[Rfam]
RNA sequence: UGCUUCGAAGGAGAUGGCAUUCCUCCUCACAACCGCCCCGUGCUGAUGAUGUCUACGUGAAC
Numbered sequence: 001u002g003c004u005u006c007g008a009a010g011g012a013g014a015u016g017g018c019a020u021u022c023c024u025c026c027u028c029a030c031a032a033c034c035g036c037c038c039c040g041u042g043c044u045g046a047u048g049a050u051g052u053c054u055a056c057g058u059g060a061a062c
Stems, first nucleotide, its partner, number of pairs: 010026004016053006035043002

Shown here is a 62-nucleotide sequence from Pseudomonas matsuisoli, a member of the family "Fluoride riboswitch aptamer (crcB RNA motif)".